[Rfam]
RNA sequence: ACGCACACGGGAGGCGAUGACGUCGCGGCUUGCACCCUGGUCGCCUGAGCCGCGCCGAGCCACUGGCGAGACCGACCCGCUUGUUG
Numbered sequence: 001a002c003g004c005a006c007a008c009g010g011g012a013g014g015c016g017a018u019g020a021c022g023u024c025g026c027g028g029c030u031u032g033c034a035c036c037c038u039g040g041u042c043g044c045c046u047g048a049g050c051c052g053c054g055c056c057g058a059g060c061c062a063c064u065g066g067c068g069a070g071a072c073c074g075a076c077c078c079g080c081u082u083g084u085u086g
Base pairs, nucleotide, nucleotide: 003084004083005082008079009078010077011076013061014060015059022055024054025053026052027051028050029049030048039073040072041069042068043067044066045065
Rfam assigns this 86-nucleotide RNA sequence to the family "c-di-GMP-II-GAG riboswitch aptamer". Pairs were carried over by alignment from the consensus structure, which is taken from published work.